A member of the RNA family "Fungal signal recognition particle RNA" from Aureobasidium uvarum, 277 nucleotides long.
On this family, see Batey et al., Science 2000: "Crystal structure of the ribonucleoprotein core of the signal recognition particle".
NCBI's taxonomy places the organism under Eukaryota, Dikarya, Pezizomycotina, Dothideomycetidae, Aureobasidium.
Pairs were carried over by alignment from the consensus structure, which is taken from published work.
RNA sequence: AGCUGUAAUGGCUCAACGGGAAGAAAUGACUUCAAUCUUUCUUACCACCCCUGCUGUUGGCAACAACCCAACCAUCGGUGCCCGGUUCGAAUCUCGUGGUGGCCACCCACUCGCACAGGUAACUUGCGAUUUGCUGCGCGUGGCCUUGAGACUGCUUGGAUACCGCUUCAGCCGAGCAAUCGGGCAGAGCGACUAAGCCCAUGAGAUGGCGAGUCCGGACUACAUUGAUGUGUUGGUGGGGUGUUUGGGAAGAGUUAUGGGAUUGUGACUUCCUUUU
Numbered sequence: 001a002g003c004u005g006u007a008a009u010g011g012c013u014c015a016a017c018g019g020g021a022a023g024a025a026a027u028g029a030c031u032u033c034a035a036u037c038u039u040u041c042u043u044a045c046c047a048c049c050c051c052u053g054c055u056g057u058u059g060g061c062a063a064c065a066a067c068c069c070a071a072c073c074a075u076c077g078g079u080g081c082c083c084g085g086u087u088c089g090a091a092u093c094u095c096g097u098g099g100u101g102g103c104c105a106c107c108c109a110c111u112c113g114c115a116c117a118g119g120u121a122a123c124u125u126g127c128g129a130u131u132u133g134c135u136g137c138g139c140g141u142g143g144c145c146u147u148g149a150g151a152c153u154g155c156u157u158g159g160a161u162a163c164c165g166c167u168u169c170a171g172c173c174g175a176g177c178a179a180u181c182g183g184g185c186a187g188a189g190c191g192a193c194u195a196a197g198c199c200c201a202u203g204a205g206a207u208g209g210c211g212a213g214u215c216c217g218g219a220c221u222a223c224a225u226u227g228a229u230g231u232g233u234u235g236g237u238g239g240g241g242u243g244u245u246u247g248g249g250a251a252g253a254g255u256u257a258u259g260g261g262a263u264u265g266u267g268a269c270u271u272c273c274u275u276u277u
Stems, first nucleotide, its partner, number of pairs: 001013003018274006026266004031261004035256001037254001038251005044245001046243006055065004069235003073230008082218004087212003091207009101145001103143002107136001109131001111129005117124002146150001154198006164191005173182003